[Rfam]
RNA: Streptomyces sRNA 4677
RNA sequence: AUCCCCGUUCCCCACGACGCAUAAAGCUUUUGAGGAUCUGGAGAAAACACCCUCCCCAACCGAACCCGACCCCCGUCACCCACUCAGGUGACAUGGGGCAACUGAGCUGGAUUUCGGGUGGGUUGGUCGGUUUAUGCUCGCCGCGACAACUCCAGACAUGCGACGGCCCCCGACCGAGAUUCGACGGUCUCAACCGGGGGCCUGACCACCGAGGAAGUAGGAGCUUCCCG
Dot-bracket structure: ......(.(......(.((...............................................)).).....(((((......)))))..............(.(((...........................))).)......................(((((.((...((((((....))))))...)).))))).....).)..(((((......)))))..
Numbered sequence: 001a002u003c004c005c006c007g008u009u010c011c012c013c014a015c016g017a018c019g020c021a022u023a024a025a026g027c028u029u030u031u032g033a034g035g036a037u038c039u040g041g042a043g044a045a046a047a048c049a050c051c052c053u054c055c056c057c058a059a060c061c062g063a064a065c066c067c068g069a070c071c072c073c074c075g076u077c078a079c080c081c082a083c084u085c086a087g088g089u090g091a092c093a094u095g096g097g098g099c100a101a102c103u104g105a106g107c108u109g110g111a112u113u114u115c116g117g118g119u120g121g122g123u124u125g126g127u128c129g130g131u132u133u134a135u136g137c138u139c140g141c142c143g144c145g146a147c148a149a150c151u152c153c154a155g156a157c158a159u160g161c162g163a164c165g166g167c168c169c170c171c172g173a174c175c176g177a178g179a180u181u182c183g184a185c186g187g188u189c190u191c192a193a194c195c196g197g198g199g200g201c202c203u204g205a206c207c208a209c210c211g212a213g214g215a216a217g218u219a220g221g222a223g224c225u226u227c228c229c230g
Stems, first nucleotide, its partner, number of pairs: 007210001009208001016070001018068002076091005106142001108140003165202005171196002176191006213228005